[Rfam]
RNA sequence: GGGAGCAGAAGAGGUGCGUUAACCAGGUAGUCUGUCUGAGGUAUCCAAAUACCCGGGAAGGCAGGUGAGGGGGCUUAACGCCGAGAUGAGUUUGCGUUUGGAUGCAAUACUUGUCGGUCACUGGGGCUGAAUCCUCAGGGCUGUCACCUUUGGUGGAGAGCUUCUGGUAUU
Numbered sequence: 001g002g003g004a005g006c007a008g009a010a011g012a013g014g015u016g017c018g019u020u021a022a023c024c025a026g027g028u029a030g031u032c033u034g035u036c037u038g039a040g041g042u043a044u045c046c047a048a049a050u051a052c053c054c055g056g057g058a059a060g061g062c063a064g065g066u067g068a069g070g071g072g073g074c075u076u077a078a079c080g081c082c083g084a085g086a087u088g089a090g091u092u093u094g095c096g097u098u099u100g101g102a103u104g105c106a107a108u109a110c111u112u113g114u115c116g117g118u119c120a121c122u123g124g125g126g127c128u129g130a131a132u133c134c135u136c137a138g139g140g141c142u143g144u145c146a147c148c149u150u151u152g153g154u155g156g157a158g159a160g161c162u163u164c165u166g167g168u169a170u171u
Base pairs, nucleotide, nucleotide: 006166007165008164009163010162011161016081017080018079019078020077021076022075024073030066031065032064033063034062035061036060037059085115086114087113088112089111090110091109092107093106094105095104096103116142117141118140119139121138122137123136124135125134126133144156145155146154147153148152
RNA: Lysine riboswitch aptamer
Organism: Photobacterium ganghwense